[Rfam]
About this RNA: The record is a 68-nucleotide RNA from Alteribacillus iranensis, which matches "Bacillaceae-1 RNA" in Rfam. The family's consensus secondary structure is taken from published work.
RNA sequence: GUCAAAGGAUCUUCUGCUAAGGACACAAACGUCCUGUUUGUAACGCAGAAGCCAGCACAUCCUGUGCA
Numbered sequence: 001g002u003c004a005a006a007g008g009a010u011c012u013u014c015u016g017c018u019a020a021g022g023a024c025a026c027a028a029a030c031g032u033c034c035u036g037u038u039u040g041u042a043a044c045g046c047a048g049a050a051g052c053c054a055g056c057a058c059a060u061c062c063u064g065u066g067c068a
Stems, first nucleotide, its partner, number of pairs: 011051007026040005055067004